[Rfam]
RNA: ZMP/ZTP riboswitch aptamer (pfl RNA motif)
Organism: Sphingobium wenxiniae
RNA sequence: UCCUGACCGCGUGACUGGCGCAAAAGGAUGGAGAACCAUCGGGGAGCGCGGGUGCAGAUGCCGCGCGCCUGGGCGACUCAC
Number, nucleotide and partner (000 for none) at each position: 001u000002c000003c000004u054005g053006a000007c051008c050009g049010c048011g047012u046013g000014a000015c043016u042017g069018g068019c067020g066021c065022a000023a000024a000025a000026g000027g000028a039029u038030g037031g036032a000033g000034a000035a000036c031037c030038a029039u028040c000041g000042g016043g015044g000045a000046g012047c011048g010049c009050g008051g007052g000053u005054g004055c000056a000057g000058a000059u075060g074061c073062c072063g000064c000065g021066c020067g019068c018069c017070u000071g000072g062073g061074c060075g059076a000077c000078u000079c000080a000081c000